[Rfam]
RNA sequence: CUGAUGGGCGCGUUCGGGUCAAUUGCGGCCUGCAACACCCGAUCUCACUCGUGACCACCGACGAGGUGGACGAGGGGGAGCGCGUGACCGUCAG
Numbered sequence: 001c002u003g004a005u006g007g008g009c010g011c012g013u014u015c016g017g018g019u020c021a022a023u024u025g026c027g028g029c030c031u032g033c034a035a036c037a038c039c040c041g042a043u044c045u046c047a048c049u050c051g052u053g054a055c056c057a058c059c060g061a062c063g064a065g066g067u068g069g070a071c072g073a074g075g076g077g078g079a080g081c082g083c084g085u086g087a088c089c090g091u092c093a094g
Stems, first nucleotide, its partner, number of pairs: 001094005008085006015041004023035005043079004048074005
RNA: L4-Archaeoglobi ribosomal protein leades